About this RNA: The record is a 92-nucleotide sequence from Cervus elaphus, which matches "Small nucleolar RNA SNORD116" in Rfam.

[Rfam]
RNA sequence: GGAUCGAUGAUGACUCUUACAAAUGCAUUCCUUGGAAAUAUGAACAAAAUGAGUGAGCCCUCCCUACCAUCUCCUCAUCGGAACUGAGGUCC
Numbered sequence: 001g002g003a004u005c006g007a008u009g010a011u012g013a014c015u016c017u018u019a020c021a022a023a024u025g026c027a028u029u030c031c032u033u034g035g036a037a038a039u040a041u042g043a044a045c046a047a048a049a050u051g052a053g054u055g056a057g058c059c060c061u062c063c064c065u066a067c068c069a070u071c072u073c074c075u076c077a078u079c080g081g082a083a084c085u086g087a088g089g090u091c092c
Base pairs, nucleotide, nucleotide: 001092002091003090004089005088026055027054028053029052030051032047033046034045

Source information:
The base pairs follow the family's consensus structure, which was predicted with PFOLD. The family has 48 seed sequences and 3,260 matches in Rfam 15.1. A search with the family's covariance model found it, with a score of 94 bits. It is annotated as a C/D-box small nucleolar RNA. The literature on the family includes a 2000 paper in Proc Natl Acad Sci U S A by Cavaille et al., "Identification of brain-specific and imprinted small nucleolar RNA genes exhibiting an unusual genomic organization". Gene Ontology terms of the family: RNA processing and nucleolus. The organism belongs to Cervus elaphus, within Eukaryota.